The record is a 101-nucleotide sequence from Lachnospiraceae bacterium MD335, which matches "c-di-GMP-I riboswitch aptamer" in Rfam. Taxonomically the source falls in Lachnospiraceae (Bacteria, Bacillati, Clostridia, Lachnospirales).
[Rfam]
RNA sequence: CAUAUUAAAAGGCAAACAUUUAGUGAUAAAUGGACGCAAAGCACGAAGUCAUAGCAAUAUAAACAUUUGAUUAUAACAUUUAUGAUGGUUCGGCUGCAUAG
Numbered sequence: 001c002a003u004a005u006u007a008a009a010a011g012g013c014a015a016a017c018a019u020u021u022a023g024u025g026a027u028a029a030a031u032g033g034a035c036g037c038a039a040a041g042c043a044c045g046a047a048g049u050c051a052u053a054g055c056a057a058u059a060u061a062a063a064c065a066u067u068u069g070a071u072u073a074u075a076a077c078a079u080u081u082a083u084g085a086u087g088g089u090u091c092g093g094c095u096g097c098a099u100a101g
Stems, first nucleotide, its partner, number of pairs: 012037002017032006040095003045091003048086003056079001
Dot-bracket structure: ...........((...((((((....))))))...))..(((..((((((.....(......................)....)))..))).)))......